[Rfam]
Lysine riboswitch aptamer: a 173-nucleotide RNA from Mammaliicoccus stepanovicii. Gene Ontology term of the family: lysine biosynthetic process. It scores 114 bits against the family's covariance model. Pairs were carried over by alignment from the consensus structure, which is taken from published work.
Nucleotides: 173
Stems, first nucleotide, its partner, number of pairs: 007167001009165003017085009033070006089117011118144002121141008146158004
Number, partner (000 for none) and nucleotide at each position: 001000u002000a003000a004000u005000g006000a007167g008000u009165u010164a011163g012000a013000g014000g015000u016000u017085g018084c019083a020082a021081u022080g023079u024078u025077c026000a027000a028000g029000a030000g031000u032000a033070a034069u035068c036067a037066u038065u039000c040000a041000g042000a043000a044000a045000u046000g047000u048000u049000a050000u051000g052000g053000c054000a055000u056000a057000u058000a059000u060000g061000u062000u063000g064000a065038a066037a067036u068035g069034a070033u071000a072000a073000a074000a075000g076000g077025g078024g079023a080022c081021a082020u083019u084018g085017c086000c087000g088000a089117a090116a091115c092114g093113a094112a095111g096110c097109g098108u099107a100000a101000c102000c103000a104000u105000g106000a107099u108098g109097c110096g111095c112094u113093u114092u115091g116090u117089u118144g119143g120000g121141u122140c123139a124138g125137u126136a127135u128134u129000g130000a131000a132000u133000a134128a135127a136126u137125g138124c139123u140122g141121a142000a143119c144118u145000g146158u147157c148156a149155c150000a151000c152000u153000a154000a155149g156148u157147g158146a159000u160000g161000u162000g163011c164010u165009a166000c167007c168000a169000a170000u171000u172000u173000u